[Rfam]
RNA sequence: AAAUUUAUCGAGCUUCUCUUCCGGGUUCUUCCCAGAGUCAGGAAAAGCUGGGUUGAGAGGGAAGGAAAAAAAAAAA
Numbered sequence: 001a002a003a004u005u006u007a008u009c010g011a012g013c014u015u016c017u018c019u020u021c022c023g024g025g026u027u028c029u030u031c032c033c034a035g036a037g038u039c040a041g042g043a044a045a046a047g048c049u050g051g052g053u054u055g056a057g058a059g060g061g062a063a064g065g066a067a068a069a070a071a072a073a074a075a076a
Base pairs, nucleotide, nucleotide: 014059015058016057017056018055021052022051024049025048029044030043031042032041

Notes: A member of the RNA family "mir-320 microRNA precursor family" from Propithecus coquereli, 76 nucleotides long. Taxonomically the source falls in Propithecus (Eukaryota, Craniata, Mammalia, Strepsirrhini). On this family, see Berezikov et al., Genome Res 2006: "Many novel mammalian microRNA candidates identified by extensive cloning and RAKE analysis". Rfam 15.1 lists 659 matches to the family in 129 species. The base pairs follow the family's consensus structure, which was predicted with RNAalifold. The match comes from Rfam's covariance-model search (67 bits).